[Rfam]
RNA sequence: CAAAAGGCUCUUUUCAGAGCCACUCACUAUAUCUGGAGAGGAGCUG
Dot-bracket structure: .....((((((....)))))).........................
Numbered sequence: 001c002a003a004a005a006g007g008c009u010c011u012u013u014u015c016a017g018a019g020c021c022a023c024u025c026a027c028u029a030u031a032u033c034u035g036g037a038g039a040g041g042a043g044c045u046g
Stems, first nucleotide, its partner, number of pairs: 006021006